[Rfam]
RNA sequence: AGCUCAAUGAUUACAUGCCUUUCACAGGCAAUAUACGCUAUUCUUAUUGGUAUAUUACCAACAGGAUGAUGACAUAAAUGUAUAUGAGAGCU
Numbered sequence: 001a002g003c004u005c006a007a008u009g010a011u012u013a014c015a016u017g018c019c020u021u022u023c024a025c026a027g028g029c030a031a032u033a034u035a036c037g038c039u040a041u042u043c044u045u046a047u048u049g050g051u052a053u054a055u056u057a058c059c060a061a062c063a064g065g066a067u068g069a070u071g072a073c074a075u076a077a078a079u080g081u082a083u084a085u086g087a088g089a090g091c092u
Stems, first nucleotide, its partner, number of pairs: 001092005

Small nucleolar RNA U54: a 92-nucleotide RNA from Papaver somniferum. Its Rfam clan is "U54 clan". Rfam 15.1 lists 614 matches to the family in 206 species. U54 is a C/D box small nucleolar RNA, which acts as a methylation guide for 18S ribosomal RNA in plants. The organism belongs to Papaver, within Eukaryota. The family's RNA type in Rfam is C/D-box small nucleolar RNA. The literature on the family includes a 2003 paper in Nucleic Acids Res by Chen et al., "The high diversity of snoRNAs in plants: identification and comparative study of 120 snoRNA genes from Oryza sativa". Rfam links the family to the GO terms RNA processing and nucleolus. The family's consensus secondary structure was predicted with PFOLD.